Description
RT-5 RNA: a 106-nucleotide RNA. Rfam's curators put it in the seed alignment. It is annotated as a small RNA.

[Rfam]
RNA sequence: UUGCCCUGUGGCGGACAAAGCGCGGCGCAAUCAAAAAACGCUUUGCAGGUAGCGGUGCCGCGUUCAGUCUGGUAUCAUAAGCAAUUGCUUAUUUCAAAGCACUUUC
Numbered sequence: 001u002u003g004c005c006c007u008g009u010g011g012c013g014g015a016c017a018a019a020g021c022g023c024g025g026c027g028c029a030a031u032c033a034a035a036a037a038a039c040g041c042u043u044u045g046c047a048g049g050u051a052g053c054g055g056u057g058c059c060g061c062g063u064u065c066a067g068u069c070u071g072g073u074a075u076c077a078u079a080a081g082c083a084a085u086u087g088c089u090u091a092u093u094u095c096a097a098a099g100c101a102c103u104u105u106c
Stems, first nucleotide, its partner, number of pairs: 005049006012071003016067001020063008039054004077092006